[Rfam]
RNA: azaaromatic riboswitch aptamer (yjdF RNA)
Organism: Paenibacillus graminis
RNA sequence: UCCUUGAAACGAGAAAACACAGCCUGGUUGGUAGUCCAGGCGCAUGCAUGGCUCUGUAUUGGUCAGAACGGCAUGUCAGUAACCUUCCCCCCUCGGGAUGUCCGUCGUUUCGAUUCAAUUG
Dot-bracket structure: ...((((((((..........((((((........))))))((((((.......................)))))).........((((.....)))).......))))))))........
Numbered sequence: 001u002c003c004u005u006g007a008a009a010c011g012a013g014a015a016a017a018c019a020c021a022g023c024c025u026g027g028u029u030g031g032u033a034g035u036c037c038a039g040g041c042g043c044a045u046g047c048a049u050g051g052c053u054c055u056g057u058a059u060u061g062g063u064c065a066g067a068a069c070g071g072c073a074u075g076u077c078a079g080u081a082a083c084c085u086u087c088c089c090c091c092c093u094c095g096g097g098a099u100g101u102c103c104g105u106c107g108u109u110u111c112g113a114u115u116c117a118a119u120u121g
Stems, first nucleotide, its partner, number of pairs: 004113008022041006042076006086098004